The family of this 158-nucleotide RNA sequence from Zygosaccharomyces rouxii is "Small nucleolar RNA snR70".
For this family Rfam cites "Structure and biogenesis of small nucleolar RNAs acting as guides for ribosomal RNA modification" (Filipowicz et al., Acta Biochim Pol, 1999).
The family's consensus secondary structure was predicted with CMfinder.
The organism belongs to Zygosaccharomyces, within Eukaryota.
RNA sequence: CAUCAUGAUGAUUGUUUUACCGACCGGGCGGACAGAAUAGUAUCGGUUUUGGGUGGUUGCUCGCUGUCUUCAAGUGUACAUUUUUUCUAGAGGAUGGUGGCAGCCCUUUGAAAAGCUCAAAAUCCGAGAAGUGGUGAGUGGUCGUGAGAUAGCUGAUU
Numbered sequence: 001c002a003u004c005a006u007g008a009u010g011a012u013u014g015u016u017u018u019a020c021c022g023a024c025c026g027g028g029c030g031g032a033c034a035g036a037a038u039a040g041u042a043u044c045g046g047u048u049u050u051g052g053g054u055g056g057u058u059g060c061u062c063g064c065u066g067u068c069u070u071c072a073a074g075u076g077u078a079c080a081u082u083u084u085u086u087c088u089a090g091a092g093g094a095u096g097g098u099g100g101c102a103g104c105c106c107u108u109u110g111a112a113a114a115g116c117u118c119a120a121a122a123u124c125c126g127a128g129a130a131g132u133g134g135u136g137a138g139u140g141g142u143c144g145u146g147a148g149a150u151a152g153c154u155g156a157u158u
Base pairs, nucleotide, nucleotide: 007153009151010150017147018146019145020144022143023142024141025140026139036135038133039132041130043127044126045125047122048121049120050119051118052117053116054113055107056106061100062099063098064097065096066095067094068093069092070091071090073088